Description:
A member of the RNA family "Ribosomal protein L19 leader" from Paucilactobacillus vaccinostercus, 38 nucleotides long. Rfam links the family to the GO term regulation of gene expression. Rfam's curators write: This family is a putative r-protein leader autoregulatory structure found in B. subtilis and other low-GC Gram-positive bacteria. Taxonomically the source falls in Paucilactobacillus vaccinostercus (Bacteria, Bacilli, Lactobacillales, Lactobacillaceae).

RNA sequence: ACGAUAUUCCGCUGUUGGUUAUCCGACAAGAAUGUCGG
Numbered sequence: 001a002c003g004a005u006a007u008u009c010c011g012c013u014g015u016u017g018g019u020u021a022u023c024c025g026a027c028a029a030g031a032a033u034g035u036c037g038g
Stems, first nucleotide, its partner, number of pairs: 003036007013028006